[Rfam]
RNA sequence: UGCGGACAUGAGCAAUUUCAGGCAAGGACGGGGGAACCACAAGCGGCGGGCCGACCAGUCCGCCUUGGGGUGAAGCCGGGAUUCAAACCACUCGCAACUCAUCGAUGCACCCUGCCUUUGGCGGGUACUGUCCGGGGAGACUGACGCGUGCCACGGACCUGGCCGGAUCAAAAGCUGCACUCUCUGAUCCGAAUCCGACAGCUAACCCCGCAGGUGCUUCUCAGAGAGGUAUU
Numbered sequence: 001u002g003c004g005g006a007c008a009u010g011a012g013c014a015a016u017u018u019c020a021g022g023c024a025a026g027g028a029c030g031g032g033g034g035a036a037c038c039a040c041a042a043g044c045g046g047c048g049g050g051c052c053g054a055c056c057a058g059u060c061c062g063c064c065u066u067g068g069g070g071u072g073a074a075g076c077c078g079g080g081a082u083u084c085a086a087a088c089c090a091c092u093c094g095c096a097a098c099u100c101a102u103c104g105a106u107g108c109a110c111c112c113u114g115c116c117u118u119u120g121g122c123g124g125g126u127a128c129u130g131u132c133c134g135g136g137g138a139g140a141c142u143g144a145c146g147c148g149u150g151c152c153a154c155g156g157a158c159c160u161g162g163c164c165g166g167a168u169c170a171a172a173a174g175c176u177g178c179a180c181u182c183u184c185u186g187a188u189c190c191g192a193a194u195c196c197g198a199c200a201g202c203u204a205a206c207c208c209c210g211c212a213g214g215u216g217c218u219u220c221u222c223a224g225a226g227a228g229g230u231a232u233u
Base pairs, nucleotide, nucleotide: 011218012217013216014215016027017026018025029210030209031208032207033206038067039066068196069195070194076162077161078160079159165190166189167188168187169186170185
RNA: c-di-AMP riboswitch aptamer (ydaO/yuaA leader)
Organism: Arthrobacter wenxiniae